Shown here is a 130-nucleotide sequence from Lipotes vexillifer, a member of the family "Small nucleolar RNA SNORA51".
[Rfam]
RNA sequence: GGCUUCUUAGUGCUUACACAGGCUGUUUGCUUAAAAUAACUGUAUGGAAUGAGGAGGCAGAACAAAUCUAUUCAUGCACACCUCAGCCCAGGUCCUUUGCUUAGUCUAUAUUAUGAAUAGGGGGACAUGG
Numbered sequence: 001g002g003c004u005u006c007u008u009a010g011u012g013c014u015u016a017c018a019c020a021g022g023c024u025g026u027u028u029g030c031u032u033a034a035a036a037u038a039a040c041u042g043u044a045u046g047g048a049a050u051g052a053g054g055a056g057g058c059a060g061a062a063c064a065a066a067u068c069u070a071u072u073c074a075u076g077c078a079c080a081c082c083u084c085a086g087c088c089c090a091g092g093u094c095c096u097u098u099g100c101u102u103a104g105u106c107u108a109u110a111u112u113a114u115g116a117a118u119a120g121g122g123g124g125a126c127a128u129g130g
Stems, first nucleotide, its partner, number of pairs: 002058007019042003026035003071122003074118002085107002088104001090102004
Rfam 15.1 lists 2,121 matches to the family in 210 species.
About the family: ACA51 is a member of the H/ACA class of snoRNA that guide the sites of modification of uridines to pseudouridines.
Pairs were carried over by alignment from the consensus structure, which was predicted with PFOLD.
Gene Ontology terms of the family: nucleolus and RNA processing.
Lineage of the source: Eukaryota > Chordata > Eutheria > Cetacea > Lipotes.